[Rfam]
RNA sequence: CGUAUCAUUGUGCCUCGCUGGGGAGCGGGGCGAUAAGUCCGAAAGAGGGAUGAUAUGAC
Number, nucleotide and partner (000 for none) at each position: 001c057002g056003u055004a054005u053006c052007a051008u050009u049010g000011u032012g031013c030014c029015u028016c027017g026018c025019u024020g000021g000022g000023g000024a019025g018026c017027g016028g015029g014030g013031c012032g011033a000034u000035a000036a000037g000038u000039c048040c047041g000042a000043a000044a000045g000046a000047g040048g039049g009050a008051u007052g006053a005054u004055a003056u002057g001058a000059c000
Rfam assigns this 59-nucleotide RNA from Bifidobacterium angulatum to the family "SAM-VI (S-adenosyl methionine) riboswitch aptamer". Rfam's curators put it in the seed alignment.